[Rfam]
drum RNA: a 114-nucleotide RNA sequence.
By type it is a small RNA.
Firmicutes, Bacteroidetes (1 example), Proteobacteria (2 examples), Spirochaetes (2 examples).
The sequence is in the family's curated seed alignment.
RNA sequence: CAGCGUUGAAGCAAGUGAUGGGGUCAGCAUGCCGUACACUUGUGGAGCUUUGACCGAGGGUUAGGCGGUUUCCACAGGCUGACGUAGGGUUUUUCCCGAAUGAAAACGCCUCUU
Numbered sequence: 001c002a003g004c005g006u007u008g009a010a011g012c013a014a015g016u017g018a019u020g021g022g023g024u025c026a027g028c029a030u031g032c033c034g035u036a037c038a039c040u041u042g043u044g045g046a047g048c049u050u051u052g053a054c055c056g057a058g059g060g061u062u063a064g065g066c067g068g069u070u071u072c073c074a075c076a077g078g079c080u081g082a083c084g085u086a087g088g089g090u091u092u093u094u095c096c097c098g099a100a101u102g103a104a105a106a107c108g109c110c111u112c113u114u
Base pairs, nucleotide, nucleotide: 002049003048004047011043012042013041014040015039016038017037018035019034020033021032024082025081026080027079065109066108067107087097088096089095